[Rfam]
RNA sequence: GCCUGGAUGGAGAAGAAAAGAGGACCUAAGAAUAGUGGGCAUGGGACCAUGAAGGAAGGCAUGCCAGGCAUAAAUAUCCUUUUUGUGCCUUCCCGAUGCCUCUCAUGCCUAUUGUUCUUAGGUACUCCUUCCUCCUCCUUUCGGAU
Numbered sequence: 001g002c003c004u005g006g007a008u009g010g011a012g013a014a015g016a017a018a019a020g021a022g023g024a025c026c027u028a029a030g031a032a033u034a035g036u037g038g039g040c041a042u043g044g045g046a047c048c049a050u051g052a053a054g055g056a057a058g059g060c061a062u063g064c065c066a067g068g069c070a071u072a073a074a075u076a077u078c079c080u081u082u083u084u085g086u087g088c089c090u091u092c093c094c095g096a097u098g099c100c101u102c103u104c105a106u107g108c109c110u111a112u113u114g115u116u117c118u119u120a121g122g123u124a125c126u127c128c129u130u131c132c133u134c135c136u137c138c139u140u141u142c143g144g145a146u
Base pairs, nucleotide, nucleotide: 009137010136012134013133015131016130017129020127021126022125025122026121027120028119029118030117031116032115033114034113036111037110038109039108040107041106042105043104044103045102046101048098049097050096054093055092056091057090058089059088060087

A member of the RNA family "MIR2118 microRNA precursor family" from Eragrostis curvula, 146 nucleotides long. The source organism's lineage runs through Eukaryota, Embryophyta, Spermatophyta, Petrosaviidae and Eragrostis. Rfam links the family to the GO terms RISC complex and miRNA-mediated post-transcriptional gene silencing.